[Rfam]
RNA sequence: CAUCAGAGGCUUUUUUUUCCCUUUUAAAAGCAUUUUUUUCUACAACCUCUUCGGCCGGAGGAGUUUUUAAAAAAAAAUGCUUUUAAAAGGGAAAAAAAAGCCUCUGAUGAUCACAGCUGAGCCGCGCGAUCAUCAGAGGCUUUUUUUUU
Numbered sequence: 001c002a003u004c005a006g007a008g009g010c011u012u013u014u015u016u017u018u019c020c021c022u023u024u025u026a027a028a029a030g031c032a033u034u035u036u037u038u039u040c041u042a043c044a045a046c047c048u049c050u051u052c053g054g055c056c057g058g059a060g061g062a063g064u065u066u067u068u069a070a071a072a073a074a075a076a077a078u079g080c081u082u083u084u085a086a087a088a089g090g091g092a093a094a095a096a097a098a099a100g101c102c103u104c105u106g107a108u109g110a111u112c113a114c115a116g117c118u119g120a121g122c123c124g125c126g127c128g129a130u131c132a133u134c135a136g137a138g139g140c141u142u143u144u145u146u147u148u149u
Stems, first nucleotide, its partner, number of pairs: 016094004021089014036074004059068003097143016

This 149-nucleotide sequence from Pantherophis guttatus belongs to the Rfam family "Phenylalanine leader peptide".
The family has 71 seed sequences and 379 matches in Rfam 15.1.
It scores 57 bits against the family's covariance model.
It is annotated as a cis-regulatory leader.
Its family is annotated with cellular amino acid metabolic process in the Gene Ontology.
On this family, see Gurvich et al., Nucleic Acids Res 2010: "Two groups of phenylalanine biosynthetic operon leader peptides genes: a high level of apparently incidental frameshifting in decoding Escherichia coli pheL".